Rfam assigns this 130-nucleotide sequence from Octodon degus to the family "Small nucleolar RNA SNORA1".

[Rfam]
RNA sequence: AGCCUCAUUCUAGAAGGAAUGGGCACCGUGGACUAGUGUCCAAAACUGAUCAAUGUGGCUACACUGAGACACAGGCGAUGCCUGUCGUAGUGAAUGCACCACUGUGGUGACAGUGAGACCAGUAACACUU
Numbered sequence: 001a002g003c004c005u006c007a008u009u010c011u012a013g014a015a016g017g018a019a020u021g022g023g024c025a026c027c028g029u030g031g032a033c034u035a036g037u038g039u040c041c042a043a044a045a046c047u048g049a050u051c052a053a054u055g056u057g058g059c060u061a062c063a064c065u066g067a068g069a070c071a072c073a074g075g076c077g078a079u080g081c082c083u084g085u086c087g088u089a090g091u092g093a094a095u096g097c098a099c100c101a102c103u104g105u106g107g108u109g110a111c112a113g114u115g116a117g118a119c120c121a122g123u124a125a126c127a128c129u130u
Stems, first nucleotide, its partner, number of pairs: 002059003006055003020042007071123002074120002083109006
The source organism's lineage runs through Eukaryota, Deuterostomia, Dipnotetrapodomorpha, Eutheria and Octodon. From the family's description: ACA1 is a member of the H/ACA class of snoRNA that guide the sites of modification of uridines to pseudouridines. Gene Ontology terms of the family: nucleolus and RNA processing. The family has 29 seed sequences and 1,282 matches in Rfam 15.1.